The record is a 91-nucleotide RNA from Roseobacter sp. SK209-2-6, which matches "Singlet oxygen resistance RNA X" in Rfam.
The match comes from Rfam's covariance-model search (50 bits).
The pairing is the family consensus, mapped onto this sequence.
NCBI's taxonomy places the organism under Bacteria, Pseudomonadati, Rhodobacterales, Roseobacteraceae, Roseobacter.
RNA sequence: ACCCUAAAUGGAGCUUAUGAAGACGGUGGCUAGCGCCACACUUCAUACCUCCCUGUUGGACUUCGGCCGAGCUUAGUGCUCGGCCUUUUUU
Numbered sequence: 001a002c003c004c005u006a007a008a009u010g011g012a013g014c015u016u017a018u019g020a021a022g023a024c025g026g027u028g029g030c031u032a033g034c035g036c037c038a039c040a041c042u043u044c045a046u047a048c049c050u051c052c053c054u055g056u057u058g059g060a061c062u063u064c065g066g067c068c069g070a071g072c073u074u075a076g077u078g079c080u081c082g083g084c085c086u087u088u089u090u091u
Stems, first nucleotide, its partner, number of pairs: 008046005065085008
A reference for the family is Berghoff et al. (2009), "Photooxidative stress-induced and abundant small RNAs in Rhodobacter sphaeroides", Mol Microbiol. Rfam's curators write: SorX (RSs2461)like SorY is a singlet oxygen induced sRNA that counteracts oxidative stress by targeting mRNA for a transporter in Rhodobacter. It also has an impact on resistance against organic hydroperoxides. It targets SD sequence of potA mRNA via an aSD sequence. The aSD sequence and some neighbouring nucleotides are identical to the one of SorY (targets takP mRNA). Rfam links the family to the GO term response to photooxidative stress. Rfam 15.1 lists 528 matches to the family in 356 species.